[Rfam]
RNA: ASpks TB sRNA
Organism: Streptomyces sp. yr375
RNA sequence: CUUCACCGACCCGAGCAGCAGCGGCCGUUCGGCCUCACGGUCCUGGCCGUACGUCGCCAGCAGCGCCUGCGCCUC
Numbered sequence: 001c002u003u004c005a006c007c008g009a010c011c012c013g014a015g016c017a018g019c020a021g022c023g024g025c026c027g028u029u030c031g032g033c034c035u036c037a038c039g040g041u042c043c044u045g046g047c048c049g050u051a052c053g054u055c056g057c058c059a060g061c062a063g064c065g066c067c068u069g070c071g072c073c074u075c
Stems, first nucleotide, its partner, number of pairs: 015025002032070002038065002043060003047056001049054001